This 261-nucleotide RNA sequence from Takifugu bimaculatus belongs to the Rfam family "Small Cajal body specific RNA 6". It scores 115 bits against the family's covariance model. The source organism's lineage runs through Eukaryota, Deuterostomia, Neopterygii, Clupeocephala and Takifugu. The literature on the family includes a 2002 paper in EMBO J by Darzacq et al., "Cajal body-specific small nuclear RNAs: a novel class of 2'-O-methylation and pseudouridylation guide RNAs". Rfam 15.1 lists 1,309 matches to the family in 627 species. From the family's description: U88 is small Cajal body specific RNA (scaRNA). scaRNAs are a novel class of small nuclear RNAs which localise to the Cajal bodies. U88 is found associated with both fibrillarin and Gar1p and co-localises with coilin in Cajal bodies. Gene Ontology terms of the family: nucleolus and RNA processing. It is annotated as a small Cajal body RNA.

RNA sequence: GGUCGGUGAUGAGCUGUAAAAGGUCUGAUUUCCCAUCAUCCUCUCCCUCUGCCAUGUGACUCCCAGCAGCUCCUGUCUGAACCAUCAUGUUCAAGAGCUACAUUGAUGGAAUCAGCAGCUGCUGAAAGACAGGAUGUGACAUCACAGUGUGUAGCGAGGAUUCUACACACUGUGAUGAGCGACAUCCAACAGAGGCAGACUCGUAUGGAGUGGCUGAGGGGGGGGGGCAGGGAGCUGAUCUCAAGUUUUCAAGCUGAGACC
Numbered sequence: 001g002g003u004c005g006g007u008g009a010u011g012a013g014c015u016g017u018a019a020a021a022g023g024u025c026u027g028a029u030u031u032c033c034c035a036u037c038a039u040c041c042u043c044u045c046c047c048u049c050u051g052c053c054a055u056g057u058g059a060c061u062c063c064c065a066g067c068a069g070c071u072c073c074u075g076u077c078u079g080a081a082c083c084a085u086c087a088u089g090u091u092c093a094a095g096a097g098c099u100a101c102a103u104u105g106a107u108g109g110a111a112u113c114a115g116c117a118g119c120u121g122c123u124g125a126a127a128g129a130c131a132g133g134a135u136g137u138g139a140c141a142u143c144a145c146a147g148u149g150u151g152u153a154g155c156g157a158g159g160a161u162u163c164u165a166c167a168c169a170c171u172g173u174g175a176u177g178a179g180c181g182a183c184a185u186c187c188a189a190c191a192g193a194g195g196c197a198g199a200c201u202c203g204u205a206u207g208g209a210g211u212g213g214c215u216g217a218g219g220g221g222g223g224g225g226g227g228c229a230g231g232g233a234g235c236u237g238a239u240c241u242c243a244a245g246u247u248u249u250c251a252a253g254c255u256g257a258g259a260c261c
Stems, first nucleotide, its partner, number of pairs: 001261004035241001038239003042225008060210004064124007082109006090100001132187006151163001153161001